The record is a 136-nucleotide RNA sequence from Acrocephalus arundinaceus, which matches "Small nucleolar RNA SNORA55" in Rfam.
It is annotated as an H/ACA-box small nucleolar RNA.
From the family's description: ACA55 is a member of the H/ACA class of snoRNA that guide the sites of modification of uridines to pseudouridines.
It scores 84 bits against the family's covariance model.
The base pairs follow the family's consensus structure, which was predicted with PFOLD.
RNA sequence: GCAUCUGAAGCUCCCCCAGUGGCUGAGGUGCCGUGCUGGGCUGGGGACACGUGCUGAUGCCACAGGAAGGCAGAGGAAAUCCAGACAAGUUCCCUUUCACCACAGUGGGACUUGUCUCUACGCCUUUGCAACAUUU
Numbered sequence: 001g002c003a004u005c006u007g008a009a010g011c012u013c014c015c016c017c018a019g020u021g022g023c024u025g026a027g028g029u030g031c032c033g034u035g036c037u038g039g040g041c042u043g044g045g046g047a048c049a050c051g052u053g054c055u056g057a058u059g060c061c062a063c064a065g066g067a068a069g070g071c072a073g074a075g076g077a078a079a080u081c082c083a084g085a086c087a088a089g090u091u092c093c094c095u096u097u098c099a100c101c102a103c104a105g106u107g108g109g110a111c112u113u114g115u116c117u118c119u120a121c122g123c124c125u126u127u128g129c130a131a132c133a134u135u136u
Stems, first nucleotide, its partner, number of pairs: 001060005014046006070129006083117008097108003